[Rfam]
RNA sequence: GGGUUCUGCUAAGUCCAAUUAUCUGAGUUACAUACGGGGUUUUAAUGACUUAAGCCACUCAGAGGAAGGUCCCCGGACCCCUGGUAGAAAGUACCGCUGAUCGUAAUCGGCUAGUCGACGUAAUGUUCCGAUAGCUGCAGGGUGCAGCAGCGGUAGUUACGCGAUGUUCGUCAUAGCACAGGUAUAUGCGGAAUCUCAGGUUUUCUCGGACACUUGAGACAACAGAACGGGGCCCACUCUGGCAGAACU
Numbered sequence: 001g002g003g004u005u006c007u008g009c010u011a012a013g014u015c016c017a018a019u020u021a022u023c024u025g026a027g028u029u030a031c032a033u034a035c036g037g038g039g040u041u042u043u044a045a046u047g048a049c050u051u052a053a054g055c056c057a058c059u060c061a062g063a064g065g066a067a068g069g070u071c072c073c074c075g076g077a078c079c080c081c082u083g084g085u086a087g088a089a090a091g092u093a094c095c096g097c098u099g100a101u102c103g104u105a106a107u108c109g110g111c112u113a114g115u116c117g118a119c120g121u122a123a124u125g126u127u128c129c130g131a132u133a134g135c136u137g138c139a140g141g142g143u144g145c146a147g148c149a150g151c152g153g154u155a156g157u158u159a160c161g162c163g164a165u166g167u168u169c170g171u172c173a174u175a176g177c178a179c180a181g182g183u184a185u186a187u188g189c190g191g192a193a194u195c196u197c198a199g200g201u202u203u204u205c206u207c208g209g210a211c212a213c214u215u216g217a218g219a220c221a222a223c224a225g226a227a228c229g230g231g232g233c234c235c236a237c238u239c240u241g242g243c244a245g246a247a248c249u
Base pairs, nucleotide, nucleotide: 002249003248004247005246006245007244008243009242010241011240014192015191016190018187019186022063023062024061025060026059027058028057037051038050039049040048041047068234069233071232072231073230074229083095084094085093086092096111097110098109099108100107101106113165115163119161120160121159122158123157124156128153129152130151135147136146137145138144194219195218196217197216198215199214200213201212
The record is a 249-nucleotide RNA sequence from Rhynchophorus ferrugineus, which matches "RNase MRP" in Rfam. Lineage of the source: Eukaryota > Pterygota > Aparaglossata > Cucujiformia > Rhynchophorus. For this family Rfam cites "Secondary structure probing of the human RNase MRP RNA reveals the potential for MRP RNA subsets" (Walker and Avis, Biochem Biophys Res Commun, 2005). It is annotated as a ribozyme.